Rfam assigns this 100-nucleotide RNA sequence from Ipomoea nil to the family "Small nucleolar RNA R30/Z108".
The literature on the family includes a 2002 paper in Curr Biol by Marker et al., "Experimental RNomics. Identification of 140 Candidates for Small Non-Messenger RNAs in the Plant Arabidopsis thaliana".
The match comes from Rfam's covariance-model search (79 bits).
From the family's description: snoR30 is a C/D box small nucleolar RNA which acts as a methylation guide for 18S ribosomal RNA in plants.
NCBI's taxonomy places the organism under Eukaryota, Streptophytina, Mesangiospermae, Solanales, Ipomoea.

[Rfam]
RNA sequence: AGUGAUUGCUAUGAGGAUUCCAAAGCUCCCUCUUCUGAGAAAAGUUGAGGAAAUUUGCUGGCAGAAUCGAACCAUUAAAAAUCUAGCCACUACUGAGCAA
Numbered sequence: 001a002g003u004g005a006u007u008g009c010u011a012u013g014a015g016g017a018u019u020c021c022a023a024a025g026c027u028c029c030c031u032c033u034u035c036u037g038a039g040a041a042a043a044g045u046u047g048a049g050g051a052a053a054u055u056u057g058c059u060g061g062c063a064g065a066a067u068c069g070a071a072c073c074a075u076u077a078a079a080a081a082u083c084u085a086g087c088c089a090c091u092a093c094u095g096a097g098c099a100a
Base pairs, nucleotide, nucleotide: 006100007099008098009097